[Rfam]
RNA sequence: AAUUUUGAAAUUCCUCGGCAGUUAACUGCAGCCGAUUCUUUUAAAUUUUGGCAGUUAACUGCCGAGGAAAAU
Number, nucleotide and partner (000 for none) at each position: 001a000002a000003u000004u000005u000006u000007g000008a000009a000010a000011u000012u068013c067014c000015u065016c064017g063018g062019c061020a060021g059022u058023u057024a056025a055026c054027u053028g052029c051030a000031g000032c000033c000034g000035a000036u000037u000038c000039u000040u000041u000042u000043a000044a000045a000046u000047u000048u000049u000050g000051g029052c028053a027054g026055u025056u024057a023058a022059c021060u020061g019062c018063c017064g016065a015066g000067g013068a012069a000070a000071a000072u000
RNA: MIR2629 microRNA precursor family
Organism: Medicago truncatula